Source information: Rfam assigns this 217-nucleotide sequence from Methylocella tundrae to the family "permuted transfer-messenger RNA". The source organism's lineage runs through Bacteria, Pseudomonadota, Hyphomicrobiales, Beijerinckiaceae and Methylocella. The family's consensus secondary structure is taken from published work. Rfam links the family to the GO term RNA catabolic process.
RNA sequence: GGCGAUAAACGGCGUCGAAAUAAGCUCUUCGGACCCGGGGGCGGUACCCGGCGCCUCCACCAAAAUCCGUAUUGAAUCAAGCGGAUUUUGGCGGGGGCGAAAUAGGUUCGACGGGGAGUGUAAAGGACUGUCUUUCGCUCGGCAUGGUACCGCCGUUAUCGGGCUAAACCUUAUAGUUGCCAAUGACAACUAUGCUCCGGUGGCCGUUGCUGCGUAA
Numbered sequence: 001g002g003c004g005a006u007a008a009a010c011g012g013c014g015u016c017g018a019a020a021u022a023a024g025c026u027c028u029u030c031g032g033a034c035c036c037g038g039g040g041g042c043g044g045u046a047c048c049c050g051g052c053g054c055c056u057c058c059a060c061c062a063a064a065a066u067c068c069g070u071a072u073u074g075a076a077u078c079a080a081g082c083g084g085a086u087u088u089u090g091g092c093g094g095g096g097g098c099g100a101a102a103u104a105g106g107u108u109c110g111a112c113g114g115g116g117a118g119u120g121u122a123a124a125g126g127a128c129u130g131u132c133u134u135u136c137g138c139u140c141g142g143c144a145u146g147g148u149a150c151c152g153c154c155g156u157u158a159u160c161g162g163g164c165u166a167a168a169c170c171u172u173a174u175a176g177u178u179g180c181c182a183a184u185g186a187c188a189a190c191u192a193u194g195c196u197c198c199g200g201u202g203g204c205c206g207u208u209g210c211u212g213c214g215u216a217a
Stems, first nucleotide, its partner, number of pairs: 001139005014128003025118003029114003035051005052099007140155004
Bacterial tmRNA, also known as 10Sa RNA or SsrA, is named for its dual tRNA and mRNA-like properties. Its role is to liberate the mRNA from a stalled ribosome. To accomplish this part of the tmRNA is used as a reading frame that ends in a translation stop signal. The broken mRNA is replaced in the ribosome by the tmRNA and translation of the tmRNA leads to addition of a proteolysis tag to the incomplete protein enabling recognition by a protease.